[Rfam]
RNA sequence: AAGAUUCUGUGGUGUACGCGUUGUCUAAACGCAGGUUUGCCUUACAGUCUUUUAAUUUUGGGACUAGUACAUUCGUAACCGGACAACAUGCCUUUUCACUUGGUAGUUGGAAAGUUAACAGUCGUGUCCCACCUGUCUUAAACACAGGUCAACACUGAAUGACAAUUAACGGCACUAACGGAGUUUUC
Numbered sequence: 001a002a003g004a005u006u007c008u009g010u011g012g013u014g015u016a017c018g019c020g021u022u023g024u025c026u027a028a029a030c031g032c033a034g035g036u037u038u039g040c041c042u043u044a045c046a047g048u049c050u051u052u053u054a055a056u057u058u059u060g061g062g063a064c065u066a067g068u069a070c071a072u073u074c075g076u077a078a079c080c081g082g083a084c085a086a087c088a089u090g091c092c093u094u095u096u097c098a099c100u101u102g103g104u105a106g107u108u109g110g111a112a113a114g115u116u117a118a119c120a121g122u123c124g125u126g127u128c129c130c131a132c133c134u135g136u137c138u139u140a141a142a143c144a145c146a147g148g149u150c151a152a153c154a155c156u157g158a159a160u161g162a163c164a165a166u167u168a169a170c171g172g173c174a175c176u177a178a179c180g181g182a183g184u185u186u187u188c
Stems, first nucleotide, its partner, number of pairs: 002186009012175004017171002034156003037152003040148002060130003064126001067123001076117004086107002091103002

6S / SsrS RNA: a 188-nucleotide RNA sequence from Limosilactobacillus frumenti. Rfam 15.1 lists 5,006 matches to the family in 4,638 species. The family's consensus secondary structure is taken from published work. E. coli 6S RNA was the first non coding RNA to be sequenced, but its function was unknown until recently. It consists of 184 nucleotides that fold into an extended hairpin structure with a large single-stranded internal bulge. The organism belongs to Limosilactobacillus frumenti, within Bacteria. It scores 55 bits against the family's covariance model.